[Rfam]
RNA sequence: CCUUAACGAGAAUCGGAUACGGUUCCAGUCAGACUGGAGGGGAAGGACGCUAAUUUAGGUUCACAACC
Number, nucleotide and partner (000 for none) at each position: 001c000002c000003u000004u000005a000006a000007c000008g000009a000010g062011a061012a060013u059014c058015g000016g056017a054018u053019a000020c049021g048022g000023u044024u043025c042026c041027a000028g000029u038030c037031a000032g000033a000034c000035u000036g000037g030038a029039g000040g000041g026042g025043a024044a023045g000046g000047a000048c021049g020050c000051u000052a000053a018054u017055u000056u016057a000058g014059g013060u012061u011062c010063a000064c000065a000066a000067c000068c000